[Rfam]
RNA sequence: UAUUUGUUAUGAUGGUCCCAGCCUAAAGCACUGGCGGCUGUGACCUGAUUCCAGAAAAUA
Numbered sequence: 001u002a003u004u005u006g007u008u009a010u011g012a013u014g015g016u017c018c019c020a021g022c023c024u025a026a027a028g029c030a031c032u033g034g035c036g037g038c039u040g041u042g043a044c045c046u047g048a049u050u051c052c053a054g055a056a057a058a059u060a
Base pairs, nucleotide, nucleotide: 001060002059003058004057005056014045015044016043017042019040020039021038022037023036028035029034